Pseudomonas sRNA P9: a 76-nucleotide RNA sequence from Janthinobacterium sp. KBS0711. It is annotated as a non-coding RNA gene. For this family Rfam cites "Identification of 17 Pseudomonas aeruginosa sRNAs and prediction of sRNA-encoding genes in 10 diverse pathogens using the bioinformatic tool sRNAPredict2" (Livny et al., Nucleic Acids Res, 2006). The organism belongs to Janthinobacterium, within Bacteria. This small RNA (sRNA) was computationally identified in the genome of the opportunistic pathogen Pseudomonas aeruginosa and its expression verified by northern blot analysis.

[Rfam]
RNA sequence: UCCAUUAUUGCCGCCAUUCCAACGAUGGUGGCUUAGCAGCAGUGUGAUUGCCAAAGCCGCCUGAGGGGCGGCUUUG
Numbered sequence: 001u002c003c004a005u006u007a008u009u010g011c012c013g014c015c016a017u018u019c020c021a022a023c024g025a026u027g028g029u030g031g032c033u034u035a036g037c038a039g040c041a042g043u044g045u046g047a048u049u050g051c052c053a054a055a056g057c058c059g060c061c062u063g064a065g066g067g068g069c070g071g072c073u074u075u076g
Stems, first nucleotide, its partner, number of pairs: 011031007053075009